RNA sequence: ACCUGGGAUACAUACUUCUUUACAUUCCAUAGUUGCUCUUGUUCAUAUGGGCAUAUAAAGAAGUAUGUACCCCAAGC
Numbered sequence: 001a002c003c004u005g006g007g008a009u010a011c012a013u014a015c016u017u018c019u020u021u022a023c024a025u026u027c028c029a030u031a032g033u034u035g036c037u038c039u040u041g042u043u044c045a046u047a048u049g050g051g052c053a054u055a056u057a058a059a060g061a062a063g064u065a066u067g068u069a070c071c072c073c074a075a076g077c
Stems, first nucleotide, its partner, number of pairs: 007071001009069014024054001027050005
The record is a 77-nucleotide RNA from Dissostichus mawsoni, which matches "mir-1 microRNA precursor family" in Rfam. The family's consensus secondary structure was predicted with RNAalifold. A reference for the family is Lee and Ambros (2001), "An extensive class of small RNAs in Caenorhabditis elegans", Science. Rfam describes the family as follows. This family represents the microRNA (miRNA) mir-1 family. miRNAs are transcribed as ~70nt precursors (modelled here) and subsequently processed by the Dicer enzyme to give a ~22nt product. NCBI's taxonomy places the organism under Eukaryota, Deuterostomia, Euteleostomi, Acanthomorphata, Dissostichus.